[Rfam]
RNA sequence: UCUGCCCCAGUUUAUGUUGCAGGUGCGGUUGCAGUGCCACGUUUGUGAUAUUUGGUGGCAGAGAGGAUAAGGCGAGGUCUUCCCCUGGUGCUCUGACCCAUGUGGGCUCCCAGGAUUGCUCAACAGCCUGACAUA
Numbered sequence: 001u002c003u004g005c006c007c008c009a010g011u012u013u014a015u016g017u018u019g020c021a022g023g024u025g026c027g028g029u030u031g032c033a034g035u036g037c038c039a040c041g042u043u044u045g046u047g048a049u050a051u052u053u054g055g056u057g058g059c060a061g062a063g064a065g066g067a068u069a070a071g072g073c074g075a076g077g078u079c080u081u082c083c084c085c086u087g088g089u090g091c092u093c094u095g096a097c098c099c100a101u102g103u104g105g106g107c108u109c110c111c112a113g114g115a116u117u118g119c120u121c122a123a124c125a126g127c128c129u130g131a132c133a134u135a
Stems, first nucleotide, its partner, number of pairs: 002061005007055004015047001019046004024041002027038003070129004074121003081115003087111002090107004

A member of the RNA family "Small nucleolar RNA SNORA17" from Formicarius rufipectus, 135 nucleotides long. Its family is annotated with RNA processing and nucleolus in the Gene Ontology. snoRNA ACA 17 belongs to the H/ACA family of snoRNAs and is predicted to guide pseudouridylation of the 28S rRNA at positions U4659 and U4598. The family's consensus secondary structure was predicted with RNAalifold.